[Rfam]
RNA sequence: GUGCGUCUUCAGGGCGGGGUGAAAUUCCCCACCGGCGGUAUGCCAGGCAAUCUGGCGAGCCCGCGAGCGCUUGCGUCGCGCACGGCACAUCGAGAGCCGCUCACGCGAUGCAAGGUCAGCAGAUCUGGUGCGAAGCCAGAGCCGACGGUUAGAGUCCGGAUGAGAGAAGAUGCGC
Numbered sequence: 001g002u003g004c005g006u007c008u009u010c011a012g013g014g015c016g017g018g019g020u021g022a023a024a025u026u027c028c029c030c031a032c033c034g035g036c037g038g039u040a041u042g043c044c045a046g047g048c049a050a051u052c053u054g055g056c057g058a059g060c061c062c063g064c065g066a067g068c069g070c071u072u073g074c075g076u077c078g079c080g081c082a083c084g085g086c087a088c089a090u091c092g093a094g095a096g097c098c099g100c101u102c103a104c105g106c107g108a109u110g111c112a113a114g115g116u117c118a119g120c121a122g123a124u125c126u127g128g129u130g131c132g133a134a135g136c137c138a139g140a141g142c143c144g145a146c147g148g149u150u151a152g153a154g155u156c157c158g159g160a161u162g163a164g165a166g167a168a169g170a171u172g173c174g175c
Base pairs, nucleotide, nucleotide: 003173004172005171006170007169008168009167010166017029018028019027031155032154033144034143035064036063037062038061059142060141067120068119124140125139126138127137128136146158147157148156
The record is a 175-nucleotide sequence from Pararobbsia silviterrae, which matches "FMN riboswitch aptamer (RFN element)" in Rfam. Pairs were carried over by alignment from the consensus structure, which is taken from published work.